About this RNA
The record is a 269-nucleotide sequence from Oceanobacillus indicireducens, which matches "Group I catalytic intron" in Rfam. The organism belongs to Oceanobacillus, within Bacteria. From the family's description: Group I catalytic introns are large self-splicing ribozymes.
[Rfam]
RNA sequence: GAAAUGGCGUCAAAAAACGCUCAAGACGGUAAACUAGAAAUGCCGCACUAAGCAGUAAUGUUUAGAUGAAAACUCCGUGAAUUCGGUGGAACCCCAAACCAUAUGAAGGAUGGUGGGCAAUACCGAGCCUAGCCUAAUGAAUUGGUGUGAUGAGUAGUUAGGAAGGUGUAACGACCAGGUGGUGAGGAACCAUACCGAUAACCCACCCACGAGCGCGGGGCAUCCUUAAAGGGAUGAAGAUAUGGUCUGAACUUUAUGGAAACAUAAAG
Number, nucleotide and partner (000 for none) at each position: 001g000002a000003a000004a000005u047006g000007g046008c045009g044010u000011c042012a041013a000014a000015a000016a000017a000018c000019g000020c000021u000022c000023a000024a000025g000026a000027c000028g000029g000030u000031a000032a000033a000034c000035u000036a000037g000038a000039a000040a000041u012042g011043c000044c009045g008046c007047a005048c000049u000050a000051a062052g061053c060054a000055g000056u000057a000058a000059u000060g053061u052062u051063u000064a000065g000066a000067u000068g000069a000070a000071a000072a000073c220074u219075c218076c217077g000078u215079g214080a000081a000082u000083u126084c125085g124086g123087u122088g121089g000090a000091a000092c000093c117094c116095c115096a114097a000098a000099c000100c000101a000102u000103a000104u000105g000106a000107a000108g000109g000110a000111u000112g000113g000114u096115g095116g094117g093118c000119a000120a000121u088122a087123c086124c085125g084126a083127g167128c166129c000130u000131a000132g000133c161134c000135u000136a000137a000138u000139g000140a155141a000142u153143u152144g151145g000146u000147g000148u000149g000150a000151u144152g143153a142154g000155u140156a000157g000158u000159u000160a000161g133162g000163a000164a000165g000166g128167u127168g000169u000170a000171a248172c000173g247174a246175c245176c244177a243178g000179g000180u000181g000182g000183u000184g000185a000186g000187g000188a000189a000190c000191c000192a000193u000194a000195c000196c000197g000198a000199u000200a000201a000202c000203c000204c000205a000206c000207c000208c000209a000210c000211g000212a000213g000214c079215g078216c000217g076218g075219g074220g073221c000222a000223u234224c233225c232226u231227u000228a000229a000230a000231g226232g225233g224234a223235u000236g000237a000238a000239g000240a000241u000242a000243u177244g176245g175246u174247c173248u171249g000250a000251a000252c000253u000254u267255u266256a265257u264258g263259g000260a000261a000262a000263c258264a257265u256266a255267a254268a000269g000